The record is a 91-nucleotide RNA sequence from Candidatus Erwinia dacicola, which matches "CopA-like RNA" in Rfam. Rfam links the family to the GO term mRNA binding. The literature on the family includes a 2001 paper in J Mol Biol by Nordgren et al., "Real time kinetic studies of the interaction between folded antisense and target RNAs using surface plasmon resonance". Rfam describes the family as follows. In several groups of bacterial plasmids, antisense RNAs regulate copy number through inhibition of replication initiator protein synthesis. These RNAs are characterised by a long hairpin structure interrupted by several unpaired residues or bulged loops. In plasmid R1, the inhibitory complex between the antisense RNA (CopA) and its target mRNA (CopT) is characterised by a four-way junction structure and a side-by-side helical alignment. A search with the family's covariance model found it, with a score of 78 bits. NCBI's taxonomy places the organism under Bacteria, Pseudomonadati, Pseudomonadota, Erwiniaceae, Erwinia.
[Rfam]
RNA sequence: ACAGAGCAACAGCUUCUGUACGGUUUUAGUGGGCCCCGGUAAUCUUCUUCUCGUCGCCAAACAUGAAGGAAGGUUAUCGGGGUUUUGUUUU
Numbered sequence: 001a002c003a004g005a006g007c008a009a010c011a012g013c014u015u016c017u018g019u020a021c022g023g024u025u026u027u028a029g030u031g032g033g034c035c036c037c038g039g040u041a042a043u044c045u046u047c048u049u050c051u052c053g054u055c056g057c058c059a060a061a062c063a064u065g066a067a068g069g070a071a072g073g074u075u076a077u078c079g080g081g082g083u084u085u086u087g088u089u090u091u
Base pairs, nucleotide, nucleotide: 001019002018003017004016005015028090029089031085032084033083034082035081036080037079038078039077040076041075042074043073044072045071046070